[Rfam]
RNA sequence: CCCGGGCUUUGAAACGGGAGGUUGCGACACACCCGGCCGCUUUGCCAUGGCGAGUGUGUUGGAAAUUUUCGUGGAGCAAUGUCUAAUUUCGUAAAAAUAGGCGA
Numbered sequence: 001c002c003c004g005g006g007c008u009u010u011g012a013a014a015c016g017g018g019a020g021g022u023u024g025c026g027a028c029a030c031a032c033c034c035g036g037c038c039g040c041u042u043u044g045c046c047a048u049g050g051c052g053a054g055u056g057u058g059u060u061g062g063a064a065a066u067u068u069u070c071g072u073g074g075a076g077c078a079a080u081g082u083c084u085a086a087u088u089u090c091g092u093a094a095a096a097a098u099a100g101g102c103g104a
Stems, first nucleotide, its partner, number of pairs: 014072003018069004025061008080103004088097002
A member of the RNA family "S10-Clostridia ribosomal protein leader" from Isobaculum melis, 104 nucleotides long. Rfam classes the family as a cis-regulatory leader. Taxonomically the source falls in Isobaculum (Bacteria, Bacillati, Bacillota, Carnobacteriaceae).